The family of this 213-nucleotide RNA from Roseovarius gaetbuli is "permuted transfer-messenger RNA". Taxonomically the source falls in Roseovarius (Bacteria, Pseudomonadati, Alphaproteobacteria, Rhodobacterales). Its family is annotated with RNA catabolic process in the Gene Ontology. The base pairs follow the family's consensus structure, which is taken from published work. It is annotated as a non-coding RNA gene.

RNA sequence: GGACAUAAACGCGCUCGUAAUACGCGGAUCGGACCCGGGGGCGGUACCCGGCGACUCCACCAACAAUCCCUUCAUUUGGGGGAUCCUGGGGUCGAAACAGGAUCGACGAACGUCUAAAGGGGUAUUGCUUUGUCUCGGUGAGGUACCACCGUUAUCGGUCCGAAAAGUACAAUUGCAAAUGACAAUCGUGCUCCGGUAGCUCUCGCAGCGUAA
Numbered sequence: 001g002g003a004c005a006u007a008a009a010c011g012c013g014c015u016c017g018u019a020a021u022a023c024g025c026g027g028a029u030c031g032g033a034c035c036c037g038g039g040g041g042c043g044g045u046a047c048c049c050g051g052c053g054a055c056u057c058c059a060c061c062a063a064c065a066a067u068c069c070c071u072u073c074a075u076u077u078g079g080g081g082g083a084u085c086c087u088g089g090g091g092u093c094g095a096a097a098c099a100g101g102a103u104c105g106a107c108g109a110a111c112g113u114c115u116a117a118a119g120g121g122g123u124a125u126u127g128c129u130u131u132g133u134c135u136c137g138g139u140g141a142g143g144u145a146c147c148a149c150c151g152u153u154a155u156c157g158g159u160c161c162g163a164a165a166a167g168u169a170c171a172a173u174u175g176c177a178a179a180u181g182a183c184a185a186u187c188g189u190g191c192u193c194c195g196g197u198a199g200c201u202c203u204c205g206c207a208g209c210g211u212a213a
Base pairs, nucleotide, nucleotide: 001135002134003133004132005131013123014122015121016120025112026111029109030108031107035051036050037049038048039047052094053093054092055091056090057089058088136151137150138149139148